The family of this 97-nucleotide RNA from Carnegiea gigantea is "Small nucleolar RNA snoR109".
It is annotated as an H/ACA-box small nucleolar RNA.
For this family Rfam cites "Experimental RNomics: identification of 140 candidates for small non-messenger RNAs in the plant Arabidopsis thaliana" (Marker et al., Curr Biol, 2002).
Gene Ontology terms of the family: nucleolus and RNA processing.

[Rfam]
RNA sequence: CGGCUGUAGCAAAAUCAUGUAAUAAUAAAGAAGCUAACUGGCCGGUUGUUGUGAAUUGUUUCAGUCGACAAAUCUGCUUACCGAGCUUCUCACAUUU
Dot-bracket structure: ............................(((((((....(((.((((((((..............)))).)))).))).....))))))).......
Numbered sequence: 001c002g003g004c005u006g007u008a009g010c011a012a013a014a015u016c017a018u019g020u021a022a023u024a025a026u027a028a029a030g031a032a033g034c035u036a037a038c039u040g041g042c043c044g045g046u047u048g049u050u051g052u053g054a055a056u057u058g059u060u061u062c063a064g065u066c067g068a069c070a071a072a073u074c075u076g077c078u079u080a081c082c083g084a085g086c087u088u089c090u091c092a093c094a095u096u097u
Stems, first nucleotide, its partner, number of pairs: 029090007040078003044074004048069004